This 95-nucleotide RNA from Gossypium stocksii belongs to the Rfam family "MIR8675 microRNA precursor family". Taxonomically the source falls in Gossypium (Eukaryota, Magnoliopsida, eudicotyledons, Gunneridae). A search with the family's covariance model found it, with a score of 96 bits.
RNA sequence: UGCGGCAUUAUAUGAUUGUGCCACAUCAUCACUUGAAAAUUAAAAUUUUUAUAUAAAUUUUUAGGUGAUGAUGUGGUACAAUUUUAAAGUGUCAU
Numbered sequence: 001u002g003c004g005g006c007a008u009u010a011u012a013u014g015a016u017u018g019u020g021c022c023a024c025a026u027c028a029u030c031a032c033u034u035g036a037a038a039a040u041u042a043a044a045a046u047u048u049u050u051a052u053a054u055a056a057a058u059u060u061u062u063a064g065g066u067g068a069u070g071a072u073g074u075g076g077u078a079c080a081a082u083u084u085u086a087a088a089g090u091g092u093c094a095u
Base pairs, nucleotide, nucleotide: 004093005092006091007090008089009088012085014083015082016081017080018079019078020077021076022075023074024073025072026071027070028069029068030067031066032065033064034063035062036061037060038059039058040057041056